Annotation
The family of this 214-nucleotide RNA from Aureimonas altamirensis is "permuted transfer-messenger RNA". It scores 142 bits against the family's covariance model. The base pairs follow the family's consensus structure, which is taken from published work. The organism belongs to Aureimonas, within Bacteria.
[Rfam]
RNA sequence: GGCGAUAAACUGCCGAUGAAAUAAACCAUUCGGACCCGGGGGCGGUACCCGGCGCCUCCACCUGAACCCCUGCCCUCGCAGGGGCUGAGGCGGGGGCGAAAUAGGAUCGACGAGGGUGUAAAGAUCGGACUUUUGCUCGGCAUGGUACCGCCGUUAUCGGGCUGUUAAAAUAGUUGCCAACGACAACUAUGCGGAAGCACGUCUCGCCGCUUAA
Numbered sequence: 001g002g003c004g005a006u007a008a009a010c011u012g013c014c015g016a017u018g019a020a021a022u023a024a025a026c027c028a029u030u031c032g033g034a035c036c037c038g039g040g041g042g043c044g045g046u047a048c049c050c051g052g053c054g055c056c057u058c059c060a061c062c063u064g065a066a067c068c069c070c071u072g073c074c075c076u077c078g079c080a081g082g083g084g085c086u087g088a089g090g091c092g093g094g095g096g097c098g099a100a101a102u103a104g105g106a107u108c109g110a111c112g113a114g115g116g117u118g119u120a121a122a123g124a125u126c127g128g129a130c131u132u133u134u135g136c137u138c139g140g141c142a143u144g145g146u147a148c149c150g151c152c153g154u155u156a157u158c159g160g161g162c163u164g165u166u167a168a169a170a171u172a173g174u175u176g177c178c179a180a181c182g183a184c185a186a187c188u189a190u191g192c193g194g195a196a197g198c199a200c201g202u203c204u205c206g207c208c209g210c211u212u213a214a
Stems, first nucleotide, its partner, number of pairs: 001137005014127004026116002030113003036052005053098007138153004